[Rfam]
RNA sequence: AAUUUGGAGAGUUUGAUCCUGGCUCAGAACGAACGCUGGCGGCGUGCCUAACACAUGCAAGUCGAGCGAGAAAGUCCCGGCAACGGGAUGAGUAAAGCGGCAAACGGGUGAGUAACGCGUAGGUAAUCUAUCCUUCGGAUCGGGAUAACCUGCUGAAAAGUGGGAUAAUACCGGAUAACGUUCUUGUGGGUAUCCUAUGAGAACCAAAGGGGGCGAGCGUAAGCAGCUCCCACCAAAGGAGGAGCCUGCGUCCGAUUAGCUAGUUGGUGGGGUAAAGGCCUACCAAGGCGACGAUCGGUAGCCGGCCUGAGAGGGCGACCGGCCACACUGGAACUGAGACACGGUCCAGACUCCUACGGGAGGCAGCAGUGGGGAAUAUUGCGCAAUGGGCGAAAGCCUGACGCAGCGACGCCGCGUGGGUGAUGAAGGCCUUCGGGUUGUAAAGCCCUGUCUGGUGGAACGAAUGGCUUAGCGGCAAAUAACCGCUAGGCGUGACGGUACCACCGAAGGAAGCCCCGGCUAACUACGUGCCAGCAGCCGCGGUAAGACGUAGGGGGCGAGCGUUGUUCGGAUUUACUG
Numbered sequence: 001a002a003u004u005u006g007g008a009g010a011g012u013u014u015g016a017u018c019c020u021g022g023c024u025c026a027g028a029a030c031g032a033a034c035g036c037u038g039g040c041g042g043c044g045u046g047c048c049u050a051a052c053a054c055a056u057g058c059a060a061g062u063c064g065a066g067c068g069a070g071a072a073a074g075u076c077c078c079g080g081c082a083a084c085g086g087g088a089u090g091a092g093u094a095a096a097g098c099g100g101c102a103a104a105c106g107g108g109u110g111a112g113u114a115a116c117g118c119g120u121a122g123g124u125a126a127u128c129u130a131u132c133c134u135u136c137g138g139a140u141c142g143g144g145a146u147a148a149c150c151u152g153c154u155g156a157a158a159a160g161u162g163g164g165a166u167a168a169u170a171c172c173g174g175a176u177a178a179c180g181u182u183c184u185u186g187u188g189g190g191u192a193u194c195c196u197a198u199g200a201g202a203a204c205c206a207a208a209g210g211g212g213g214c215g216a217g218c219g220u221a222a223g224c225a226g227c228u229c230c231c232a233c234c235a236a237a238g239g240a241g242g243a244g245c246c247u248g249c250g251u252c253c254g255a256u257u258a259g260c261u262a263g264u265u266g267g268u269g270g271g272g273u274a275a276a277g278g279c280c281u282a283c284c285a286a287g288g289c290g291a292c293g294a295u296c297g298g299u300a301g302c303c304g305g306c307c308u309g310a311g312a313g314g315g316c317g318a319c320c321g322g323c324c325a326c327a328c329u330g331g332a333a334c335u336g337a338g339a340c341a342c343g344g345u346c347c348a349g350a351c352u353c354c355u356a357c358g359g360g361a362g363g364c365a366g367c368a369g370u371g372g373g374g375a376a377u378a379u380u381g382c383g384c385a386a387u388g389g390g391c392g393a394a395a396g397c398c399u400g401a402c403g404c405a406g407c408g409a410c411g412c413c414g415c416g417u418g419g420g421u422g423a424u425g426a427a428g429g430c431c432u433u434c435g436g437g438u439u440g441u442a443a444a445g446c447c448c449u450g451u452c453u454g455g456u457g458g459a460a461c462g463a464a465u466g467g468c469u470u471a472g473c474g475g476c477a478a479a480u481a482a483c484c485g486c487u488a489g490g491c492g493u494g495a496c497g498g499u500a501c502c503a504c505c506g507a508a509g510g511a512a513g514c515c516c517c518g519g520c521u522a523a524c525u526a527c528g529u530g531c532c533a534g535c536a537g538c539c540g541c542g543g544u545a546a547g548a549c550g551u552a553g554g555g556g557g558c559g560a561g562c563g564u565u566g567u568u569c570g571g572a573u574u575u576a577c578u579g
Base pairs, nucleotide, nucleotide: 009025010024011023012022013021027569028568029567030566032565033564034563035562036561037560039415040414041413042412043411044410045408046407047373052371053370054369056368057367058366061101062100063099066098067097070093074089075088076087077086078085079084108326109325110324117251118250119249120248121247122246123245124244127243128242132239133238134237135236137234138233140174141173142172143171149164150163151162152161153160154159180204181203182202183201184200185199186198187197188196189195209231210230211229212228213227214226252298253297254296259289260288261287264286265285266284267283268282269281270280271279301323302322303321304320305316306315307314308313328349329348330347331346332345351362352361353360354359379405381404382403383402387400388399389398390397391396418448419447420446421445428439429438430437431436452510453506454505455504456503457502458501462496468490469489470488471487472486473485474484513558514557515556516555517554524553525552526551527550528549534541535540